[Rfam]
Shown here is a 120-nucleotide RNA sequence from Olea europaea, a member of the family "MIR394 microRNA precursor family". A search with the family's covariance model found it, with a score of 60 bits. The organism belongs to Olea europaea, within Eukaryota. For this family Rfam cites "Computational identification of plant microRNAs and their targets, including a stress-induced miRNA" (Jones-Rhoades and Bartel, Mol Cell, 2004).
RNA sequence: AUUGCAGAGCUAUUUUGGCAUUCUGUCCACCUCCGUUAGAUAUUGUUAUCACCAGAUGGAAAUUUCACUUUCAACGAUGAAAACUUGGAGGCGGCCAGCUUGUCAAACUAGCUCUGAAAA
Numbered sequence: 001a002u003u004g005c006a007g008a009g010c011u012a013u014u015u016u017g018g019c020a021u022u023c024u025g026u027c028c029a030c031c032u033c034c035g036u037u038a039g040a041u042a043u044u045g046u047u048a049u050c051a052c053c054a055g056a057u058g059g060a061a062a063u064u065u066c067a068c069u070u071u072c073a074a075c076g077a078u079g080a081a082a083a084c085u086u087g088g089a090g091g092c093g094g095c096c097a098g099c100u101u102g103u104c105a106a107a108c109u110a111g112c113u114c115u116g117a118a119a120a
Stems, first nucleotide, its partner, number of pairs: 011110001015106006024097002027094002030091005
Pairs were carried over by alignment from the consensus structure, which was predicted with WAR.